[Rfam]
RNA sequence: UCGUCCUGCCUCGUGAUCGUCUUCUCACCCUUCACGGCGGCAGGCGGAUGGACGGAGAACCCCGUGAGGACAGGACUCACGGGGUUCUCCC
Numbered sequence: 001u002c003g004u005c006c007u008g009c010c011u012c013g014u015g016a017u018c019g020u021c022u023u024c025u026c027a028c029c030c031u032u033c034a035c036g037g038c039g040g041c042a043g044g045c046g047g048a049u050g051g052a053c054g055g056a057g058a059a060c061c062c063c064g065u066g067a068g069g070a071c072a073g074g075a076c077u078c079a080c081g082g083g084g085u086u087c088u089c090c091c
Stems, first nucleotide, its partner, number of pairs: 001047003005044006013035004019029001054090015
The record is a 91-nucleotide RNA from Streptomyces alanosinicus, which matches "sodF sRNA" in Rfam. Pairs were carried over by alignment from the consensus structure. Rfam links the family to the GO terms mRNA binding, negative regulation of translation and regulation of mRNA stability.